[Rfam]
RNA sequence: GUCACAGGUGGCGCGGUGCCCGCGACCGUCCAGAGGACGGCUCGGAGAACGCACAGCGUCGAAUGCGCAAUACCCAACGAAGACGGUAGACAAG
Numbered sequence: 001g002u003c004a005c006a007g008g009u010g011g012c013g014c015g016g017u018g019c020c021c022g023c024g025a026c027c028g029u030c031c032a033g034a035g036g037a038c039g040g041c042u043c044g045g046a047g048a049a050c051g052c053a054c055a056g057c058g059u060c061g062a063a064u065g066c067g068c069a070a071u072a073c074c075c076a077a078c079g080a081a082g083a084c085g086g087u088a089g090a091c092a093a094g
Base pairs, nucleotide, nucleotide: 009061010060011059012058013057014056016054017053018052019051
RNA: sucC RNA